[Rfam]
RNA sequence: GAAGUCGGCCAGGCAGUCGCGCCAUCCUUCGGGAUGUCGAGGAAAGUCCGGGCUCCGCAGGGCAGAGUGCCAGGUAACGCCUGGGCGGCGCGAGCCGACGGAAAGUGCAACAGAAAGAUACCGCCCAAGACUGCGCAGGCAGGACGGCAAGGGUGAAAUGGUGCGGUAAGAGCGCACCGCGAGUCCGGCAACGGACCGGCACGGCAAACCCCACUCGGAGCAAGGCCAAAUAGGGAUGCGAUGCCACGGCCCGUGGCGCAUCCGGGUAGGCUGCUUGAGCGCUGCGGCGACGCAGCGCCUAGAGGAAUGACUGUCCCAGACAGAACCCGGCUUAUCGGCCGGCUUCGCCA
Numbered sequence: 001g002a003a004g005u006c007g008g009c010c011a012g013g014c015a016g017u018c019g020c021g022c023c024a025u026c027c028u029u030c031g032g033g034a035u036g037u038c039g040a041g042g043a044a045a046g047u048c049c050g051g052g053c054u055c056c057g058c059a060g061g062g063c064a065g066a067g068u069g070c071c072a073g074g075u076a077a078c079g080c081c082u083g084g085g086c087g088g089c090g091c092g093a094g095c096c097g098a099c100g101g102a103a104a105g106u107g108c109a110a111c112a113g114a115a116a117g118a119u120a121c122c123g124c125c126c127a128a129g130a131c132u133g134c135g136c137a138g139g140c141a142g143g144a145c146g147g148c149a150a151g152g153g154u155g156a157a158a159u160g161g162u163g164c165g166g167u168a169a170g171a172g173c174g175c176a177c178c179g180c181g182a183g184u185c186c187g188g189c190a191a192c193g194g195a196c197c198g199g200c201a202c203g204g205c206a207a208a209c210c211c212c213a214c215u216c217g218g219a220g221c222a223a224g225g226c227c228a229a230a231u232a233g234g235g236a237u238g239c240g241a242u243g244c245c246a247c248g249g250c251c252c253g254u255g256g257c258g259c260a261u262c263c264g265g266g267u268a269g270g271c272u273g274c275u276u277g278a279g280c281g282c283u284g285c286g287g288c289g290a291c292g293c294a295g296c297g298c299c300u301a302g303a304g305g306a307a308u309g310a311c312u313g314u315c316c317c318a319g320a321c322a323g324a325a326c327c328c329g330g331c332u333u334a335u336c337g338g339c340c341g342g343c344u345u346c347g348c349c350a
Stems, first nucleotide, its partner, number of pairs: 001346010011335001012315007020039002023036005044333003048330005053220004060252004065216005070084005085099001086097004100211002105209002107205002121152002123148003131142004160178006179200001180198002183196005224272004234263006243257005279298008
A member of the RNA family "Bacterial RNase P class A" from Chiayiivirga flava, 350 nucleotides long. The match comes from Rfam's covariance-model search (314 bits). It is annotated as a ribozyme.